[Rfam]
RNA sequence: AUGAUUCUUCAGGGCAGGGUGAAAUUCCCGACCGGUGGUAAAGCCCACGAACCGAAAGGUAGAUUCGGUGAAAUUCCGAAGCCGACAGUAAAACAUGACAGUCUGGAUGAAAGAAGAAUGUU
Dot-bracket structure: ...(((((((......(((.......)))...((((((....[[))))..(((....)))...(((((.......)))))]])).(((..............))).......)))))))...